[Rfam]
RNA sequence: GGCCCAGUGGCUCAGUUGGUUAGAGUGCCGCCCUGUCACGGCGGAGGUCGAGGGUUCGAGUCCCUUCUGGGUCG
Numbered sequence: 001g002g003c004c005c006a007g008u009g010g011c012u013c014a015g016u017u018g019g020u021u022a023g024a025g026u027g028c029c030g031c032c033c034u035g036u037c038a039c040g041g042c043g044g045a046g047g048u049c050g051a052g053g054g055u056u057c058g059a060g061u062c063c064c065u066u067c068u069g070g071g072u073c074g
Stems, first nucleotide, its partner, number of pairs: 001073007010026004028044005050066005

The family of this 74-nucleotide sequence from Proteiniclasticum sediminis is "tRNA".
By type it is a transfer RNA.
A search with the family's covariance model found it, with a score of 67 bits.